[Rfam]
RNA sequence: UAUUUCGCGGUUCGAAAACUCCCGCGUUAACAAAACUAGGAGGAA
Numbered sequence: 001u002a003u004u005u006c007g008c009g010g011u012u013c014g015a016a017a018a019c020u021c022c023c024g025c026g027u028u029a030a031c032a033a034a035a036c037u038a039g040g041a042g043g044a045a
Base pairs, nucleotide, nucleotide: 006026007025008024009023010022016037